[Rfam]
RNA sequence: CUUCAUGCUUUUCCACAGCUUUCUUGAACUACAAAUUGCUUCACUUCUCUCAAGAAAUUGGGGUUUUAUAUAAGUUCAAGAAAGCUGUGGGAAAACAUGGUGA
Numbered sequence: 001c002u003u004c005a006u007g008c009u010u011u012u013c014c015a016c017a018g019c020u021u022u023c024u025u026g027a028a029c030u031a032c033a034a035a036u037u038g039c040u041u042c043a044c045u046u047c048u049c050u051c052a053a054g055a056a057a058u059u060g061g062g063g064u065u066u067u068a069u070a071u072a073a074g075u076u077c078a079a080g081a082a083a084g085c086u087g088u089g090g091g092a093a094a095a096c097a098u099g100g101u102g103a
Stems, first nucleotide, its partner, number of pairs: 003100005013090003017086006024079004029074002

Rfam assigns this 103-nucleotide RNA sequence from Salvia splendens to the family "MIR396 microRNA precursor family".
NCBI's taxonomy places the organism under Eukaryota, Euphyllophyta, Gunneridae, Salviinae, core Calosphace.
A search with the family's covariance model found it, with a score of 82 bits.